[Rfam]
RNA sequence: GUGGUUUUUUCAUAAUAGUAUUAGAUUAUAGGUUAAAGAAGGAUUGAGAGGUGUCGAGAGACACCUUUUUUCUUUUUA
Numbered sequence: 001g002u003g004g005u006u007u008u009u010u011c012a013u014a015a016u017a018g019u020a021u022u023a024g025a026u027u028a029u030a031g032g033u034u035a036a037a038g039a040a041g042g043a044u045u046g047a048g049a050g051g052u053g054u055c056g057a058g059a060g061a062c063a064c065c066u067u068u069u070u071u072c073u074u075u076u077u078a
Stems, first nucleotide, its partner, number of pairs: 049066007

A member of the RNA family "Bacteroidetes FopS (family of paralogous sRNAs)" from Porphyromonas levii, 78 nucleotides long. Rfam links the family to the GO term sRNA-mediated gene silencing. From the family's description: The RNA-binding protein RbpB and BTncRNA_FopS sRNA are involved in the post-transcription regulation of polysaccharide utilisation loci (PUL). FopS sRNAs function as post-transcriptional repressors by binding to the vicinity of the start codon of the first mRNA of target PUL polycistrons, typically corresponding to the cognate SusC homolog, impeding translation of the respective glycan transporter. It is annotated as a small RNA. Rfam 15.1 lists 822 matches to the family in 178 species. On this family, see Ruttiger et al., Nat Commun 2025: "The global RNA-binding protein RbpB is a regulator of polysaccharide utilization in Bacteroides thetaiotaomicron".